[Rfam]
RNA sequence: CGGAAGGGACGACCCUAUCUGAAUUCUCGCUCGGCGGGGACGACCCCG
Number, nucleotide and partner (000 for none) at each position: 001c021002g020003g019004a018005a016006g015007g014008g013009a000010c000011g000012a000013c008014c007015c006016u005017a000018u004019c003020u002021g001022a000023a000024u000025u000026c000027u000028c000029g000030c000031u000032c000033g000034g000035c048036g047037g046038g045039g044040a000041c000042g000043a000044c039045c038046c037047c036048g035

A member of the RNA family "Guanidine-II riboswitch aptamer (mini-ykkC)" from Aureliella helgolandensis, 48 nucleotides long.